[Rfam]
RNA sequence: GGUAUUGUUUGCCACCACAUAAUGAGCCCCGGAAACUUAUAUUGUGCUUCAAACAAACAGAUA
Numbered sequence: 001g002g003u004a005u006u007g008u009u010u011g012c013c014a015c016c017a018c019a020u021a022a023u024g025a026g027c028c029c030c031g032g033a034a035a036c037u038u039a040u041a042u043u044g045u046g047c048u049u050c051a052a053a054c055a056a057a058c059a060g061a062u063a
Base pairs, nucleotide, nucleotide: 006059007058008057009056010055011054016046017045018044019043023039024038025037026036
RNA: Ribosomal protein L13 leader